[Rfam]
A member of the RNA family "ZMP/ZTP riboswitch aptamer (pfl RNA motif)" from Nocardioides piscis, 78 nucleotides long. The source organism's lineage runs through Bacteria, Bacillati, Actinomycetes, Nocardioidaceae and Nocardioides. The family's consensus secondary structure is taken from published work.
RNA sequence: CUGACCCCACACGACUGGCGCAGGUGGGCAACCACCAGGGAGUGACCGCGCAGAGCAUCGACCGCCUGGGUGCUCGCC
Numbered sequence: 001c002u003g004a005c006c007c008c009a010c011a012c013g014a015c016u017g018g019c020g021c022a023g024g025u026g027g028g029c030a031a032c033c034a035c036c037a038g039g040g041a042g043u044g045a046c047c048g049c050g051c052a053g054a055g056c057a058u059c060g061a062c063c064g065c066c067u068g069g070g071u072g073c074u075c076g077c078c
Base pairs, nucleotide, nucleotide: 003051006048010044011043012042015039016038017066018065019064020063024035025034026033027032055073056072057071058070059069